[Rfam]
RNA sequence: AGGUAGCAUCCAAAAGAUAAGAUGCCUACCCGAUACGGUAUUCCUAGAGUAAAAUUAUAAUUUCCUGCUUGUGGUAUUGUAAGCAGGUUCUGCAAGUCUCAAAUGAUAAGGCAGCUGA
Numbered sequence: 001a002g003g004u005a006g007c008a009u010c011c012a013a014a015a016g017a018u019a020a021g022a023u024g025c026c027u028a029c030c031c032g033a034u035a036c037g038g039u040a041u042u043c044c045u046a047g048a049g050u051a052a053a054a055u056u057a058u059a060a061u062u063u064c065c066u067g068c069u070u071g072u073g074g075u076a077u078u079g080u081a082a083g084c085a086g087g088u089u090c091u092g093c094a095a096g097u098c099u100c101a102a103a104u105g106a107u108a109a110g111g112c113a114g115c116u117g118a
Stems, first nucleotide, its partner, number of pairs: 002030002005027001006025005056111001058109001067097008076088003
Dot-bracket structure: .((.((((((..........))))).).)).........................(.(........((((((((.(((.......))).))))))))...........).).......
The family of this 118-nucleotide RNA sequence from Triticum turgidum is "Small nucleolar RNA snoR104". On this family, see Marker et al., Curr Biol 2002: "Experimental RNomics: identification of 140 candidates for small non-messenger RNAs in the plant Arabidopsis thaliana". It scores 91 bits against the family's covariance model. Pairs were carried over by alignment from the consensus structure, which was predicted with WAR. NCBI's taxonomy places the organism under Eukaryota, Tracheophyta, Poales, Poaceae, Triticum turgidum. Gene Ontology terms of the family: nucleolus and RNA processing. The family's RNA type in Rfam is H/ACA-box small nucleolar RNA.